Overview
The family of this 66-nucleotide sequence from Pseudomonas cremoricolorata is "Pseudomonas sRNA P26". Rfam classes the family as a non-coding RNA gene. The base pairs follow the family's consensus structure, which was predicted with RNAalifold. A search with the family's covariance model found it, with a score of 66 bits. About the family: This small RNA (sRNA) was computationally identified in the genome of the opportunistic pathogen Pseudomonas aeruginosa and its expression verified by northern blot analysis. P26 is conserved across many Gammaproteobacteria species and appears to be consistently located between the DNA directed RNA polymerase (beta subunit) and 50S ribosomal protein L7/L12 genes.
[Rfam]
RNA sequence: GACUGUGCGACUCCAGCCUGAGCGUUAAGCGCGAGGCUGACGGCUGGUGGCUUAGGCCACCGGCCU
Number, nucleotide and partner (000 for none) at each position: 001g000002a000003c000004u000005g000006u000007g000008c000009g000010a000011c000012u000013c000014c039015a038016g037017c036018c035019u000020g000021a000022g030023c029024g000025u000026u000027a000028a000029g023030c022031g000032c000033g000034a000035g018036g017037c016038u015039g014040a000041c000042g065043g064044c063045u062046g061047g060048u059049g058050g057051c056052u000053u000054a000055g000056g051057c050058c049059a048060c047061c046062g045063g044064c043065c042066u000